[Rfam]
RNA sequence: GCUCUGCAUCAAGAGCCGACUUGUCGGCGCCAACCUGCCUCCCCGGGCAAGGUGGCUAGCGAAAGCGGAUGCGGCCUUGAGGCAACCAAGCGGGAGCA
Numbered sequence: 001g002c003u004c005u006g007c008a009u010c011a012a013g014a015g016c017c018g019a020c021u022u023g024u025c026g027g028c029g030c031c032a033a034c035c036u037g038c039c040u041c042c043c044c045g046g047g048c049a050a051g052g053u054g055g056c057u058a059g060c061g062a063a064a065g066c067g068g069a070u071g072c073g074g075c076c077u078u079g080a081g082g083c084a085a086c087c088a089a090g091c092g093g094g095a096g097c098a
Base pairs, nucleotide, nucleotide: 006072007071008070009069010068015028016027017026018025019024029056030055031054034052035051036050037048038047039046042094043093044092045091074083075082076081
This 98-nucleotide RNA belongs to the Rfam family "SAM-I/IV (S-adenosyl methionine) riboswitch aptamer". It is one of the family's seed sequences. The literature on the family includes a 2008 paper in RNA by Weinberg et al., "The aptamer core of SAM-IV riboswitches mimics the ligand-binding site of SAM-I riboswitches". The family is grouped with related families in Rfam's "SAM clan". The family has 417 seed sequences and 567 matches in Rfam 15.1. Gene Ontology terms of the family: S-adenosylmethionine metabolic process and regulation of gene expression.